[Rfam]
RNA sequence: UGUCGUAGCUGGAUUAGAGAUCGGCUAUUGAUGUAUUUUUAACCUCACUUUACGGAGUAAAUAAAAUGUCUCUAAGCGUAGAAGCAAAAGCAAAAAUCGUGGCUGAAUUUGGUCGUGAUGCA
Numbered sequence: 001u002g003u004c005g006u007a008g009c010u011g012g013a014u015u016a017g018a019g020a021u022c023g024g025c026u027a028u029u030g031a032u033g034u035a036u037u038u039u040u041a042a043c044c045u046c047a048c049u050u051u052a053c054g055g056a057g058u059a060a061a062u063a064a065a066a067u068g069u070c071u072c073u074a075a076g077c078g079u080a081g082a083a084g085c086a087a088a089a090g091c092a093a094a095a096a097u098c099g100u101g102g103c104u105g106a107a108u109u110u111g112g113u114c115g116u117g118a119u120g121c122a
Base pairs, nucleotide, nucleotide: 007026008025009024010023011022012021048076049075050074054073055072056071057070